The family of this 122-nucleotide RNA from Debaryomyces hansenii is "U5 spliceosomal RNA". Taxonomically the source falls in Debaryomyces (Eukaryota, Opisthokonta, saccharomyceta, Pichiomycetes). A reference for the family is Zwieb (1997), "The uRNA database", Nucleic Acids Res. Rfam 15.1 lists 28,527 matches to the family in 2,489 species. The sequence is in the family's curated seed alignment. Rfam classes the family as a spliceosomal small nuclear RNA.
[Rfam]
RNA sequence: AUCACCAGAAGAUCAAUUUCAAAAUCGUACAUGGUUCUUGCCUUUUACCAGAACCAUCCGGGAAUUGUCUUCACUACUGGUGUUUUCACUAUUUUUUGGAACCUUUUUCUUUAUAUUAAGAU
Numbered sequence: 001a002u003c004a005c006c007a008g009a010a011g012a013u014c015a016a017u018u019u020c021a022a023a024a025u026c027g028u029a030c031a032u033g034g035u036u037c038u039u040g041c042c043u044u045u046u047a048c049c050a051g052a053a054c055c056a057u058c059c060g061g062g063a064a065u066u067g068u069c070u071u072c073a074c075u076a077c078u079g080g081u082g083u084u085u086u087c088a089c090u091a092u093u094u095u096u097u098g099g100a101a102c103c104u105u106u107u108u109c110u111u112u113a114u115a116u117u118a119a120g121a122u
Base pairs, nucleotide, nucleotide: 003082004081005080006079009071010070011069014067015066016065017064018063019062020061031057032056033055034054035053036052037051038050100122103120104119105118